PyrR binding site: a 127-nucleotide sequence from Clostridium cylindrosporum. The source organism's lineage runs through Bacteria, Bacillati, Clostridia, Clostridium and Clostridium cylindrosporum. It is annotated as a cis-regulatory element.
[Rfam]
RNA sequence: AGUGCUUUUAAUUCAGUCCAGAGAGGCUGACAAAGUAAUAAAAUCUAUACUCUAGGGGUGGUGGGUCUAUCUCUAGAUAUAAGGUGGAGUGUAACCUCUUUGUCAGUUGGCAAAGAGGUUUUUUUGC
Numbered sequence: 001a002g003u004g005c006u007u008u009u010a011a012u013u014c015a016g017u018c019c020a021g022a023g024a025g026g027c028u029g030a031c032a033a034a035g036u037a038a039u040a041a042a043a044u045c046u047a048u049a050c051u052c053u054a055g056g057g058g059u060g061g062u063g064g065g066u067c068u069a070u071c072u073c074u075a076g077a078u079a080u081a082a083g084g085u086g087g088a089g090u091g092u093a094a095c096c097u098c099u100u101u102g103u104c105a106g107u108u109g110g111c112a113a114a115g116a117g118g119u120u121u122u123u124u125u126g127c
Stems, first nucleotide, its partner, number of pairs: 003037006013030006046082001051077011091122001093120012
Rfam 15.1 lists 1,498 matches to the family in 930 species. From the family's description: This family represents the PyrR binding site and terminator structure.